[Rfam]
The family of this 95-nucleotide sequence from Solanum tuberosum is "mir-395 microRNA precursor family". NCBI's taxonomy places the organism under Eukaryota, Embryophyta, Spermatophyta, lamiids, Solanum. From the family's description: mir-395 was identified in both Arabidopsis thaliana and Oryza sativa computationally and was later experimentally verified. mir-395 is thought to target mRNAs coding for ATP sulphurylases. The mature sequence is excised from the 3' arm of the hairpin. For this family Rfam cites "Computational Identification of Plant MicroRNAs and Their Targets, Including a Stress-Induced miRNA" (Jones-Rhoades and Bartel, Mol Cell, 2004). The family's consensus secondary structure was predicted with PFOLD. Rfam links the family to the GO terms RISC complex and miRNA-mediated post-transcriptional gene silencing.
RNA sequence: GUGAUCCCUAGAGUUCCCUUGACCACUUCAUUAGGAAUUAAUUACUUCAUUUUUAAUGUUCUACUGAAGUGUUUUGGGGGAACUCCCGGGUUCAC
Number, nucleotide and partner (000 for none) at each position: 001g000002u000003g000004a000005u000006c090007c089008c088009u000010a000011g085012a084013g083014u082015u081016c080017c079018c078019u077020u076021g000022a075023c000024c071025a070026c069027u068028u067029c066030a065031u000032u063033a062034g061035g060036a000037a000038u000039u000040a000041a000042u000043u000044a000045c000046u000047u000048c000049a000050u000051u000052u000053u000054u000055a000056a000057u000058g000059u000060u035061c034062u033063a032064c000065u030066g029067a028068a027069g026070u025071g024072u000073u000074u000075u022076g020077g019078g018079g017080g016081a015082a014083c013084u012085c011086c000087c000088g008089g007090g006091u000092u000093c000094a000095c000